[Rfam]
RNA sequence: GGUGGUAACGAGGAGGAUAACAGAGCUCCCUCUUCUGAAAUUUUUGAGGACUCUCGCUGGCAGAAUCGAACCUAAUACUCUUAUCGCCACCACUGAGUUA
Numbered sequence: 001g002g003u004g005g006u007a008a009c010g011a012g013g014a015g016g017a018u019a020a021c022a023g024a025g026c027u028c029c030c031u032c033u034u035c036u037g038a039a040a041u042u043u044u045u046g047a048g049g050a051c052u053c054u055c056g057c058u059g060g061c062a063g064a065a066u067c068g069a070a071c072c073u074a075a076u077a078c079u080c081u082u083a084u085c086g087c088c089a090c091c092a093c094u095g096a097g098u099u100a
Base pairs, nucleotide, nucleotide: 006100007099008098009097